This 71-nucleotide RNA from Limnohabitans sp. T6-5 belongs to the Rfam family "Burkholderia RNA 7 (anti-hemB)". Rfam describes the family as follows. This RNA motif was identified by computational search in b-proteobacteria Burkholderia. Lineage of the source: Bacteria > Pseudomonadati > Pseudomonadota > Burkholderiales > Limnohabitans. The family has 26 seed sequences and 479 matches in Rfam 15.1. It scores 58 bits against the family's covariance model.

[Rfam]
RNA sequence: UCCCUGCAUCACCUCCCUGUGCAGGUGCCUCAACGGCAUUCAAUCCCCGGCUUAGGCCGGGGAUUUUUUAA
Number, nucleotide and partner (000 for none) at each position: 001u000002c000003c025004c024005u023006g022007c021008a020009u000010c000011a000012c000013c000014u000015c000016c000017c000018u000019g000020u008021g007022c006023a005024g004025g003026u000027g037028c036029c035030u000031c000032a000033a000034c000035g029036g028037c027038a000039u000040u000041c000042a000043a000044u063045c062046c061047c060048c059049g058050g057051c056052u000053u000054a000055g000056g051057c050058c049059g048060g047061g046062g045063a044064u000065u000066u000067u000068u000069u000070a000071a000